[Rfam]
RNA sequence: AUGUACACUGAGUGGCCAGAUGAUGAUGAUCUCUGAAUGCAUCAUCAUCUGGCCACUCAGUAUACAU
Numbered sequence: 001a002u003g004u005a006c007a008c009u010g011a012g013u014g015g016c017c018a019g020a021u022g023a024u025g026a027u028g029a030u031c032u033c034u035g036a037a038u039g040c041a042u043c044a045u046c047a048u049c050u051g052g053c054c055a056c057u058c059a060g061u062a063u064a065c066a067u
Stems, first nucleotide, its partner, number of pairs: 004064002007061011019049010